[Rfam]
RNA sequence: UGGGCCCUUUCACAGGCCCUCCCCUCGGCAGUGGGGCCAGGAUUGGGUUGCUGGUGCUGAGAGAAAGCCCUUGAUUGCAUCCUUGCUCUGGGACUGUACCAGUGGCAGCUGUCACUUAGUGGGACAGAG
Numbered sequence: 001u002g003g004g005c006c007c008u009u010u011c012a013c014a015g016g017c018c019c020u021c022c023c024c025u026c027g028g029c030a031g032u033g034g035g036g037c038c039a040g041g042a043u044u045g046g047g048u049u050g051c052u053g054g055u056g057c058u059g060a061g062a063g064a065a066a067g068c069c070c071u072u073g074a075u076u077g078c079a080u081c082c083u084u085g086c087u088c089u090g091g092g093a094c095u096g097u098a099c100c101a102g103u104g105g106c107a108g109c110u111g112u113c114a115c116u117u118a119g120u121g122g123g124a125c126a127g128a129g
Stems, first nucleotide, its partner, number of pairs: 003058003007054002013046001015044001018041003022036004068123003071119004076114002079112002083108005088102004
Dot-bracket structure: ..(((.((....(.(..(((.((((.......))))..)))..).)......)).))).........(((((((.((.((..(((((((((.......)))).)))))..)))).)))).)))......
RNA: Small nucleolar RNA SNORA30/SNORA37 family